This 186-nucleotide RNA sequence from Natrinema saccharevitans belongs to the Rfam family "Sense overlapping transcript RNA 2652 (sot)".
Rfam 15.1 lists 37 matches to the family in 25 species.
[Rfam]
Nucleotides: 186
Stems, first nucleotide, its partner, number of pairs: 005052006013044002020039006053076001057073005062067001084186002087182002091178001093176001098173002102170006109121004137160004142155004
Number, partner (000 for none) and nucleotide at each position: 001000a002000u003000u004000a005052c006051c007050g008049g009048a010047c011000u012000c013044a014043c015000a016000a017000a018000a019000c020039c021038c022037a023036g024035c025034c026000g027000c028000a029000a030000g031000u032000u033000c034025g035024g036023u037022u038021g039020g040000u041000g042000c043014g044013u045000c046000u047010g048009u049008c050007c051006g052005g053076g054000u055000c056000g057073g058072g059071g060070c061069g062067c063000g064000u065000a066000a067062g068000c069061c070060g071059c072058c073057c074000a075000c076053c077000c078000u079000c080000a081000u082000c083000c084186c085185g086000u087182u088181c089000c090000c091178u092000c093176g094000c095000g096000g097000a098173a099172c100000a101000g102170g103169g104168a105167g106166u107165g108000c109121u110120a111119g112118c113000g114000c115000a116000c117000g118112g119111c120110u121109g122000a123000g124000g125000g126000a127000a128000c129000g130000c131000a132000u133000a134000a135000a136000a137160g138159c139158c140157u141000c142155g143154g144153g145152c146000c147000a148000c149000c150000g151000c152145g153144c154143c155142c156000a157140a158139g159138g160137c161000c162000g163000u164000u165107u166106a167105c168104u169103c170102c171000c172099g173098u174000a175000a176093c177000a178091g179000u180000c181088g182087a183000c184000c185085c186084g

For this family Rfam cites "Sense overlapping transcripts in IS1341-type transposase genes are functional non-coding RNAs in archaea" (Gomes-Filho et al., RNA Biol, 2015). Lineage of the source: Archaea > Methanobacteriati > Methanobacteriota > Halobacteria > Natrinema. It is annotated as a small RNA. About the family: It is associated with IS1341-type transposase (tnpB) genes, at the 3'-end in H. salinarum NRC-1. The base pairs follow the family's consensus structure, which was predicted with RNAfold.